[Rfam]
RNA sequence: AAUGGUCCUCGGUAGUGGUUUCCGCAAGGCGCCAAAGUUUUGCGUGAACUUCAAUCGACGAUUCAUU
Numbered sequence: 001a002a003u004g005g006u007c008c009u010c011g012g013u014a015g016u017g018g019u020u021u022c023c024g025c026a027a028g029g030c031g032c033c034a035a036a037g038u039u040u041u042g043c044g045u046g047a048a049c050u051u052c053a054a055u056c057g058a059c060g061a062u063u064c065a066u067u
Stems, first nucleotide, its partner, number of pairs: 001067004005062003009058005017050005023044007